[Rfam]
RNA sequence: UUAUAAGCAAGAAAUCACUUUUUAGAUUCAUUGAAUAAUUGAUGUAUCCAGUCUAUAAUACUGACUGCAUACAUCGGUUAUUCAAUGAAACUAAAAAGUGUUUUUUUGCUUAUAA
Number, nucleotide and partner (000 for none) at each position: 001u000002u114003a113004u112005a111006a110007g109008c000009a107010a106011g105012a104013a103014a000015u000016c100017a099018c098019u097020u096021u095022u094023u093024a092025g091026a000027u089028u088029c087030a086031u085032u084033g083034a082035a081036u080037a079038a078039u077040u076041g075042a074043u073044g072045u000046a000047u000048c000049c067050a066051g065052u064053c000054u000055a000056u000057a000058a000059u000060a000061c000062u000063g000064a052065c051066u050067g049068c000069a000070u000071a000072c044073a043074u042075c041076g040077g039078u038079u037080a036081u035082u034083c033084a032085a031086u030087g029088a028089a027090a000091c025092u024093a023094a022095a021096a020097a019098g018099u017100g016101u000102u000103u013104u012105u011106u010107u009108g000109c007110u006111u005112a004113u003114a002115a000
MIR2593 microRNA precursor family: a 115-nucleotide sequence from Medicago truncatula. The match comes from Rfam's covariance-model search (104 bits). The organism belongs to Medicago, within Eukaryota. Its family is annotated with RISC complex and miRNA-mediated post-transcriptional gene silencing in the Gene Ontology.